[Rfam]
The family of this 92-nucleotide sequence from Phyllobacterium endophyticum is "Rhizobiales sRNA Atu_Ti1". The match comes from Rfam's covariance-model search (90 bits). Lineage of the source: Bacteria > Pseudomonadota > Alphaproteobacteria > Phyllobacteriaceae > Phyllobacterium. A reference for the family is Wilms et al. (2012), "Deep sequencing uncovers numerous small RNAs on all four replicons of the plant pathogen Agrobacterium tumefaciens", RNA Biol. By type it is a small RNA.
RNA sequence: GUCCACGUUGCGGCGGACCAGAGCCAGAGGCCCGCGAGGGCACUGGCGGCAGCCGGCCACCAUCUUGUUGUCAUGACAAUGAGGCCGGCUGC
Numbered sequence: 001g002u003c004c005a006c007g008u009u010g011c012g013g014c015g016g017a018c019c020a021g022a023g024c025c026a027g028a029g030g031c032c033c034g035c036g037a038g039g040g041c042a043c044u045g046g047c048g049g050c051a052g053c054c055g056g057c058c059a060c061c062a063u064c065u066u067g068u069u070g071u072c073a074u075g076a077c078a079a080u081g082a083g084g085c086c087g088g089c090u091g092c
Stems, first nucleotide, its partner, number of pairs: 001018004023047004031039002049092010063082002066079001069076001